[Rfam]
Shown here is a 128-nucleotide RNA from Muraenolepis orangiensis, a member of the family "Phenylalanine leader peptide". It is annotated as a cis-regulatory leader.

RNA sequence: CUUCUUCUUCUUCUUCUUCUUCUUCUUCUUCUUCUUCUUCUUCUUCAGAAGAAGAAGAAGAAGAAGAAGAAGAAGAAGAAGAAGAAGAAGAAGAAGAAAAAAGUACGGAACAUUCGCGCUUUUUUUUC
Dot-bracket structure: .........((((.((((((((((((((.(((((((((((((((((.............))))))))))))))))).)))))))))))))).))))...(((((.((((...)))).)))))......